[Rfam]
RNA sequence: CCUCUGGAGAGACUCAAAGAGAGCACCGAAGGAGCAAGGUUUAAGUUUUAUUAAACUCAAACUCUCAGGUAAAAGGACAGGGG
Numbered sequence: 001c002c003u004c005u006g007g008a009g010a011g012a013c014u015c016a017a018a019g020a021g022a023g024c025a026c027c028g029a030a031g032g033a034g035c036a037a038g039g040u041u042u043a044a045g046u047u048u049u050a051u052u053a054a055a056c057u058c059a060a061a062c063u064c065u066c067a068g069g070u071a072a073a074a075g076g077a078c079a080g081g082g083g
Stems, first nucleotide, its partner, number of pairs: 001083006013023003025070003028066002032064003038057007
Glycine riboswitch aptamer: an 83-nucleotide RNA from Clostridium disporicum. The source organism's lineage runs through Bacteria, Bacillota, Clostridia, Clostridiaceae and Clostridium.